Flavo-1 RNA: a 76-nucleotide sequence from Flavobacterium cheongpyeongense. The family's consensus secondary structure is taken from published work. The match comes from Rfam's covariance-model search (70 bits). NCBI's taxonomy places the organism under Bacteria, Pseudomonadati, Bacteroidota, Flavobacteriia, Flavobacterium. It is annotated as a small RNA.
[Rfam]
RNA sequence: CCCUAGCCCAGAUGGAAGCGGCAUCCUUUUGUGGCGGGGUUCGCCAUAAAAGAUAUAGUAAACAGCUGGAAAUAGC
Numbered sequence: 001c002c003c004u005a006g007c008c009c010a011g012a013u014g015g016a017a018g019c020g021g022c023a024u025c026c027u028u029u030u031g032u033g034g035c036g037g038g039g040u041u042c043g044c045c046a047u048a049a050a051a052g053a054u055a056u057a058g059u060a061a062a063c064a065g066c067u068g069g070a071a072a073u074a075g076c
Stems, first nucleotide, its partner, number of pairs: 009068003013064002018059002023054003029049008